[Rfam]
RNA sequence: GCGGUUCCGGUUCCCGCCCCCAACACUGGCAGAGGCGACCCGGCGACC
Numbered sequence: 001g002c003g004g005u006u007c008c009g010g011u012u013c014c015c016g017c018c019c020c021c022a023a024c025a026c027u028g029g030c031a032g033a034g035g036c037g038a039c040c041c042g043g044c045g046a047c048c
Stems, first nucleotide, its partner, number of pairs: 003048003007043004015037004020032001
Rfam assigns this 48-nucleotide RNA from Acrocarpospora phusangensis to the family "L31-Actinobacteria ribosomal protein leader". It is annotated as a cis-regulatory leader. Pairs were carried over by alignment from the consensus structure, which is taken from published work. It scores 46 bits against the family's covariance model.